[Rfam]
RNA sequence: UGAGUCGUCCAGACGGUCGCGUCAGCACUUCGUGUUGCCGAGGAACGUCCGGGCUCCACAGAGCGCGAUGGUGGUUAACAGCCACCCGGGGUGACCCGCGAGAUAGUGCCACAGAAAACAGACCGCCUCUUCCUAUACCUUCGGCAGGGGUAAGGGUGAAACGGUGGUGUAAGAGACCACCGGGAGUCAGGUGACUGGCUUCGCACGGUAAACCUCAUCGGGAGCAAGACCAAACAGUGAAUGUAAGCUGCUCGCCUAGUUCACGGGUAGGUUGCUUGAGACCUGUGGUAACACAGGCCCUAGAGAAAUGGCCGUCAUUCGAAUACCGGUAACGGUACCGAAUACAGAACCCGGCGUAUCGGGCGACUCAUCCC
Numbered sequence: 001u002g003a004g005u006c007g008u009c010c011a012g013a014c015g016g017u018c019g020c021g022u023c024a025g026c027a028c029u030u031c032g033u034g035u036u037g038c039c040g041a042g043g044a045a046c047g048u049c050c051g052g053g054c055u056c057c058a059c060a061g062a063g064c065g066c067g068a069u070g071g072u073g074g075u076u077a078a079c080a081g082c083c084a085c086c087c088g089g090g091g092u093g094a095c096c097c098g099c100g101a102g103a104u105a106g107u108g109c110c111a112c113a114g115a116a117a118a119c120a121g122a123c124c125g126c127c128u129c130u131u132c133c134u135a136u137a138c139c140u141u142c143g144g145c146a147g148g149g150g151u152a153a154g155g156g157u158g159a160a161a162c163g164g165u166g167g168u169g170u171a172a173g174a175g176a177c178c179a180c181c182g183g184g185a186g187u188c189a190g191g192u193g194a195c196u197g198g199c200u201u202c203g204c205a206c207g208g209u210a211a212a213c214c215u216c217a218u219c220g221g222g223a224g225c226a227a228g229a230c231c232a233a234a235c236a237g238u239g240a241a242u243g244u245a246a247g248c249u250g251c252u253c254g255c256c257u258a259g260u261u262c263a264c265g266g267g268u269a270g271g272u273u274g275c276u277u278g279a280g281a282c283c284u285g286u287g288g289u290a291a292c293a294c295a296g297g298c299c300c301u302a303g304a305g306a307a308a309u310g311g312c313c314g315u316c317a318u319u320c321g322a323a324u325a326c327c328g329g330u331a332a333c334g335g336u337a338c339c340g341a342a343u344a345c346a347g348a349a350c351c352c353g354g355c356g357u358a359u360c361g362g363g364c365g366a367c368u369c370a371u372c373c374c
Base pairs, nucleotide, nucleotide: 001370002369003368004367005366006365007364008363009362010361011359012316013315014314015313016312017311018310020040021039023037024036025035026034027033028032045357046356047355049354050353051352052351053350054224055223056222057221061253062252063251064250066220067219068218069217070216071085072084073083074082075081086100087098088097089096090095101215102214106213107212108209109208110207123155124154125151126150127149128148129147130146132144133143163181164180165179166178167177168176182204183202184201185200186199187198188197189196190195228273229272230271231270237264238263239262240261241260242259244258245257247255248254280299282297283296284295285294286293287292
RNA: Bacterial RNase P class A
Organism: Boudabousia marimammalium